[Rfam]
Notes
Shown here is an 80-nucleotide sequence from Alligator sinensis, a member of the family "Mammalian CPEB3 ribozyme". Gene Ontology term of the family: RNA nuclease activity.
RNA sequence: AGAGGUCACAAGUUCAAGGCCACAGCAGAAGUACUCAUGGUGCGGCCCUGUCAGAUUCCAAUGAAUCUGCAAAUUCUGCU
Dot-bracket structure: .................[[[[..((((((((((.......)))]]]]....(((((((....)))))))....)))))))
The base pairs follow the family's consensus structure, which is taken from published work.
It scores 57 bits against the family's covariance model.